[Rfam]
RNA sequence: AAGGCGAAUUGGGCAAUCGCGGUGCUUAAUCGCAUCGAGGAAGGUCCGGACUCCGUAGAGCGGGAUAACGGUUAACGACCGUCCGAGUGUGGGUGGAUGCGAAUCCACUCACGCUUGAGGACUAGGGCCACAGAGACGAGUCUGCAAGGGGGGUGCGCUGAAAGGCGUACUCUUCCACGGUGUUCCCGUGGUGCACGAGGCGCUUGCGCCUUGAAUUUUGCAGGGUGAAACGCGGCAACCUCUAUCCGGAGCAACACCAAAUAGGCAUACGUGUGGCCUUGUGUCACGUUGGGCGGCUCGCCCGAGUAUGCGGGUAGGUGGCUAGAGCACUUCAGCAAUGAUUUGCCCAGAGGAAUGAUUGCCAGCCCACGCAAGUGGGUUUACAGAAUCCGGCCUAUAGAUUCGCCUUGCAC
Numbered sequence: 001a002a003g004g005c006g007a008a009u010u011g012g013g014c015a016a017u018c019g020c021g022g023u024g025c026u027u028a029a030u031c032g033c034a035u036c037g038a039g040g041a042a043g044g045u046c047c048g049g050a051c052u053c054c055g056u057a058g059a060g061c062g063g064g065a066u067a068a069c070g071g072u073u074a075a076c077g078a079c080c081g082u083c084c085g086a087g088u089g090u091g092g093g094u095g096g097a098u099g100c101g102a103a104u105c106c107a108c109u110c111a112c113g114c115u116u117g118a119g120g121a122c123u124a125g126g127g128c129c130a131c132a133g134a135g136a137c138g139a140g141u142c143u144g145c146a147a148g149g150g151g152g153g154u155g156c157g158c159u160g161a162a163a164g165g166c167g168u169a170c171u172c173u174u175c176c177a178c179g180g181u182g183u184u185c186c187c188g189u190g191g192u193g194c195a196c197g198a199g200g201c202g203c204u205u206g207c208g209c210c211u212u213g214a215a216u217u218u219u220g221c222a223g224g225g226u227g228a229a230a231c232g233c234g235g236c237a238a239c240c241u242c243u244a245u246c247c248g249g250a251g252c253a254a255c256a257c258c259a260a261a262u263a264g265g266c267a268u269a270c271g272u273g274u275g276g277c278c279u280u281g282u283g284u285c286a287c288g289u290u291g292g293g294c295g296g297c298u299c300g301c302c303c304g305a306g307u308a309u310g311c312g313g314g315u316a317g318g319u320g321g322c323u324a325g326a327g328c329a330c331u332u333c334a335g336c337a338a339u340g341a342u343u344u345g346c347c348c349a350g351a352g353g354a355a356u357g358a359u360u361g362c363c364a365g366c367c368c369a370c371g372c373a374a375g376u377g378g379g380u381u382u383a384c385a386g387a388a389u390c391c392g393g394c395c396u397a398u399a400g401a402u403u404c405g406c407c408u409u410g411c412a413c
Stems, first nucleotide, its partner, number of pairs: 001409010011398001012363007020037006042396003046393005051251004058299004063247005068082005083119001084117015120242002125240002127236003142224002144221006255320004265311006290304005327346003332341003

The record is a 413-nucleotide RNA from Zwartia hollandica, which matches "Bacterial RNase P class A" in Rfam. By type it is a ribozyme. The organism belongs to Zwartia, within Bacteria. The match comes from Rfam's covariance-model search (204 bits).